[Rfam]
RNA sequence: UAAGGGUUAUAGCUUCUCUUCCUGGUUCUUCCUGGAGUUGGGAAAGCUGGGUUGAGAGGGUUAGAAAAAAAAAAA
Numbered sequence: 001u002a003a004g005g006g007u008u009a010u011a012g013c014u015u016c017u018c019u020u021c022c023u024g025g026u027u028c029u030u031c032c033u034g035g036a037g038u039u040g041g042g043a044a045a046g047c048u049g050g051g052u053u054g055a056g057a058g059g060g061u062u063a064g065a066a067a068a069a070a071a072a073a074a075a
Stems, first nucleotide, its partner, number of pairs: 014058005021051005029044006
Dot-bracket structure: .............(((((..(((((...((((((....))))))..)))))..))))).................
Shown here is a 75-nucleotide RNA from Sapajus apella, a member of the family "mir-320 microRNA precursor family". Gene Ontology terms of the family: RISC complex, positive regulation of stem cell proliferation and long-term synaptic potentiation.